Rfam assigns this 129-nucleotide sequence from Myotis davidii to the family "Small Cajal body specific RNA 8". The organism belongs to Myotis, within Eukaryota.

[Rfam]
RNA sequence: CGGGAGGCCGACACACAAAUGGGGCUGCAGUGCUGCUCGAAAUGUCACCGUACCCCCUCGAAUAAACUGCCUUUUGUUGACCGGGACAAACUGAGAGAAAUUGUAACGGACAGAUACGGGCAGACAGUU
Dot-bracket structure: .(((.((.......(((....((((.........))))....))).......))))).........(((((.(.......(((..((((...........))))..)))........))))))......

A reference for the family is Darzacq et al. (2002), "Cajal body-specific small nuclear RNAs: a novel class of 2'-O-methylation and pseudouridylation guide RNAs", EMBO J. Rfam links the family to the GO terms RNA processing, Cajal body and nucleolus. The family's RNA type in Rfam is small Cajal body RNA. Rfam's curators write: scaRNAs are a specific class of small nuclear RNAs which localise to the Cajal bodies and guide the modification of RNA polymerase II transcribed spliceosomal RNAs U1, U2, U4, U5 and U12. U92 belong to the H/ACA box class of guide RNAs as it has the predicted hairpin-hinge-hairpin-tail structure, conserved H/ACA-box motifs and is found associated with GAR1. A search with the family's covariance model found it, with a score of 112 bits.